A member of the RNA family "Mammalian CPEB3 ribozyme" from Alligator sinensis, 76 nucleotides long.
The mammalian CPEB3 ribozyme is a self cleaving RNA located in the second intron of the CPEB3 gene which belongs to a family of genes regulating messenger RNA polyadenylation. This ribozyme is highly conserved and found only in mammals. The CPEB3 ribozyme is structurally and biochemically related to the human hepatitis delta virus (HDV) ribozyme and the HDV ribozyme is proposed to have arisen from the human transcriptome.
The organism belongs to Alligator, within Eukaryota.

RNA sequence: CUUGCAAGUUGGAGGCCCUAGGAUAAGUGCUCAUGCCACAGCCCUGUCAGAUUCUAGUGAAUCUGCGAAUUCUGAU
Numbered sequence: 001c002u003u004g005c006a007a008g009u010u011g012g013a014g015g016c017c018c019u020a021g022g023a024u025a026a027g028u029g030c031u032c033a034u035g036c037c038a039c040a041g042c043c044c045u046g047u048c049a050g051a052u053u054c055u056a057g058u059g060a061a062u063c064u065g066c067g068a069a070u071u072c073u074g075a076u
Stems, first nucleotide, its partner, number of pairs: 012044001014043003020076001023073001025071002027039003048065007